[Rfam]
RNA sequence: CCGUGCUAGAUGGGGAGUUUGCGGUGCCCUGUAACCUGCAAUCCGCAGAAGCAGGAUCGAAGUCCUUUGCUGAGGCCGGCGUCUGUAAGGCCUGACCCUGAUAAGUGGCGUUGAUAAUUGGGUCCUGCGCAACAGAAAUUUAUGAACCCCGUCAGGUCCGGGAGGAAGCAGCGGUAAGUAAACCCUUCUGUGUGCCGUAGGGAUGCCUGGUUGGAGCUAACUGUCCGGGUAACGCUUGGAGAUGCUUGUGUCGAAGGAAGGUGCACGG
Dot-bracket structure: ((((((..(((((((.(((...))).))))....(((((...........)))))))).....(((.(.((..(((((.(((((.((((...((..((.(((..(((((.....(((((((((((((((((.(((((.(((((.....((((....(((....)))....))))...)))))...)))))))...))))))...)))))))))..))).)).))).)).))...)))).)))))..)).)))..)).)))).))))))